glmS glucosamine-6-phosphate activated ribozyme aptamer: a 149-nucleotide sequence from Isobaculum melis.
Rfam classes the family as a riboswitch.
From the family's description: This entry contains a glucosamine-6-phosphate activated ribozyme that is found in the mRNA for GlmS. GlmS is an enzyme that uses fructose-6-phosphate and glutamine to generate glucosamine-6-phosphate. The ribozyme catalyses self cleavage of the glmS mRNA that is thought to regulate GlmS activity.
The literature on the family includes a 2006 paper in Nat Struct Mol Biol by Jansen et al., "Backbone and nucleobase contacts to glucosamine-6-phosphate in the glmS ribozyme".
The organism belongs to Isobaculum, within Bacteria.
The match comes from Rfam's covariance-model search (97 bits).

RNA sequence: UAAAAAAGAACAGCGCCAGACCUGUUUUCAGGUGACGAGGAAAGAGCUUAUCGAAGUAUUCGGCGGGUGGCUCUAGGUUGAUGUAAUCUAAAGAAUAAAUACAAAUCAAAAUAGUAAUAUUUUAGACAAAAGUUUAUUCACACAUCUUU
Dot-bracket structure: ...................(((((....))))).........(((((...((((.....))))......)))))(((((.....)))))...(((((((........((((((....)))))).........)))))))..........